Rfam assigns this 73-nucleotide sequence from Cnephaeus nilssonii to the family "mir-9223 microRNA precursor family". Rfam links the family to the GO terms RISC complex and miRNA-mediated post-transcriptional gene silencing. It scores 69 bits against the family's covariance model.
RNA sequence: GGCAGUUCUUGGGUGACGUACCCUGGAAUCAGGCUCCCUCCUCUCUGGUUCUGGGUGCGUCAGCUUGGCAGCU
Numbered sequence: 001g002g003c004a005g006u007u008c009u010u011g012g013g014u015g016a017c018g019u020a021c022c023c024u025g026g027a028a029u030c031a032g033g034c035u036c037c038c039u040c041c042u043c044u045c046u047g048g049u050u051c052u053g054g055g056u057g058c059g060u061c062a063g064c065u066u067g068g069c070a071g072c073u
Stems, first nucleotide, its partner, number of pairs: 005072003008068002011065002014062004019057005025052009
The organism belongs to Cnephaeus, within Eukaryota.